[Rfam]
RNA sequence: CUUGGGAAGUGUUACCAAAGACUGAAAAAGAGGCGCCAGCUCUGGUGAAUUGAUAAUUCAUUUGCACGUCAGUCUGAUCCCAAA
Numbered sequence: 001c002u003u004g005g006g007a008a009g010u011g012u013u014a015c016c017a018a019a020g021a022c023u024g025a026a027a028a029a030g031a032g033g034c035g036c037c038a039g040c041u042c043u044g045g046u047g048a049a050u051u052g053a054u055a056a057u058u059c060a061u062u063u064g065c066a067c068g069u070c071a072g073u074c075u076g077a078u079c080c081c082a083a084a
Stems, first nucleotide, its partner, number of pairs: 002083006

A member of the RNA family "Small nucleolar RNA Z122" from Lupinus albus, 84 nucleotides long.
Rfam 15.1 lists 822 matches to the family in 247 species.
A search with the family's covariance model found it, with a score of 44 bits.
It is annotated as a C/D-box small nucleolar RNA.